[Rfam]
RNA sequence: CUAGCAACACUAUCCUGAUGCUGUUAGAAUUAGUGGUAAAGCUCCAGCAUCAGUGAUUUUGUUGUUAG
Numbered sequence: 001c002u003a004g005c006a007a008c009a010c011u012a013u014c015c016u017g018a019u020g021c022u023g024u025u026a027g028a029a030u031u032a033g034u035g036g037u038a039a040a041g042c043u044c045c046a047g048c049a050u051c052a053g054u055g056a057u058u059u060u061g062u063u064g065u066u067a068g
Stems, first nucleotide, its partner, number of pairs: 006063004012057003015053009
RNA: mir-338 microRNA precursor family
Organism: Bombycilla garrulus